[Rfam]
Rfam assigns this 68-nucleotide sequence from Callorhinchus milii to the family "mir-8/mir-141/mir-200 microRNA precursor family".
The match comes from Rfam's covariance-model search (72 bits).
Lineage of the source: Eukaryota > Holocephali > Chimaeriformes > Callorhinchidae > Callorhinchus.
Clan: mir-8 microRNA precursor clan.
Pairs were carried over by alignment from the consensus structure, which was predicted with RNAalifold.
A reference for the family is Lagos-Quintana et al. (2003), "New microRNAs from mouse and human", RNA.

RNA sequence: AUUAUCAUCUUACUGGGCAGCAUUGGAUGUAAACUGGUAUUCUAAUACUGCCUGGUAAUGAUGAUGAU
Numbered sequence: 001a002u003u004a005u006c007a008u009c010u011u012a013c014u015g016g017g018c019a020g021c022a023u024u025g026g027a028u029g030u031a032a033a034c035u036g037g038u039a040u041u042c043u044a045a046u047a048c049u050g051c052c053u054g055g056u057a058a059u060g061a062u063g064a065u066g067a068u
Stems, first nucleotide, its partner, number of pairs: 002067008010058011022046006